[Rfam]
Source information
Pseudomonas sRNA CrcZ: a 354-nucleotide RNA from Pseudomonas matsuisoli. Its family is annotated with carbon catabolite repression of transcription in the Gene Ontology. The family's RNA type in Rfam is small RNA.
RNA sequence: ACAACAACAAUAAAAACGGCCACCCACAAUAAGAACGAUAUAUACGGCUCCGCAUAACAACGAUAAAAAGCAGAGACGCAGCUAACUGAUUCUUUUGAAGAACGUUGUCACGGGCACGCCUGCAACCGGUUAAGAACAACAAAACUGCCUUGAAGGCAGCGGCGCUCGGUUGGAUCUACAGGUCAUGGCAAAAACGGCGAUCAAAGCAAUCCGUUUGCUACUCGCUCCCAAAUCGGGAGCGCUGGCUGAAAAACAAAAACGACAGGCCAGCAGUACGAUAUUCGUACACUUUCAACAUCUAGGGGAGCUUCGGCUCCCCUUUGUUCUUUUGACAGCUAGCGCUACCGCGUUCAU
Numbered sequence: 001a002c003a004a005c006a007a008c009a010a011u012a013a014a015a016a017c018g019g020c021c022a023c024c025c026a027c028a029a030u031a032a033g034a035a036c037g038a039u040a041u042a043u044a045c046g047g048c049u050c051c052g053c054a055u056a057a058c059a060a061c062g063a064u065a066a067a068a069a070g071c072a073g074a075g076a077c078g079c080a081g082c083u084a085a086c087u088g089a090u091u092c093u094u095u096u097g098a099a100g101a102a103c104g105u106u107g108u109c110a111c112g113g114g115c116a117c118g119c120c121u122g123c124a125a126c127c128g129g130u131u132a133a134g135a136a137c138a139a140c141a142a143a144a145c146u147g148c149c150u151u152g153a154a155g156g157c158a159g160c161g162g163c164g165c166u167c168g169g170u171u172g173g174a175u176c177u178a179c180a181g182g183u184c185a186u187g188g189c190a191a192a193a194a195c196g197g198c199g200a201u202c203a204a205a206g207c208a209a210u211c212c213g214u215u216u217g218c219u220a221c222u223c224g225c226u227c228c229c230a231a232a233u234c235g236g237g238a239g240c241g242c243u244g245g246c247u248g249a250a251a252a253a254c255a256a257a258a259a260c261g262a263c264a265g266g267c268c269a270g271c272a273g274u275a276c277g278a279u280a281u282u283c284g285u286a287c288a289c290u291u292u293c294a295a296c297a298u299c300u301a302g303g304g305g306a307g308c309u310u311c312g313g314c315u316c317c318c319c320u321u322u323g324u325u326c327u328u329u330u331g332a333c334a335g336c337u338a339g340c341g342c343u344a345c346c347g348c349g350u351u352c353a354u
Stems, first nucleotide, its partner, number of pairs: 045078002048075003093206005103199003123172007145159005224240005242335003284326001286324002301320008